[Rfam]
A member of the RNA family "ffh sRNA" from Methylosinus sporium, 52 nucleotides long. The literature on the family includes a 2009 paper in BMC Genomics by Meyer et al., "Identification of candidate structured RNAs in the marine organism 'Candidatus Pelagibacter ubique'". The family's consensus secondary structure is taken from published work. The organism belongs to Methylosinus, within Bacteria.
RNA sequence: GAGGCGUGGGGCCAACGUCCGGCAGCGCUGAGCGCCCCCGGGCGCGCUUUGC
Numbered sequence: 001g002a003g004g005c006g007u008g009g010g011g012c013c014a015a016c017g018u019c020c021g022g023c024a025g026c027g028c029u030g031a032g033c034g035c036c037c038c039c040g041g042g043c044g045c046g047c048u049u050u051g052c
Stems, first nucleotide, its partner, number of pairs: 016044007025035004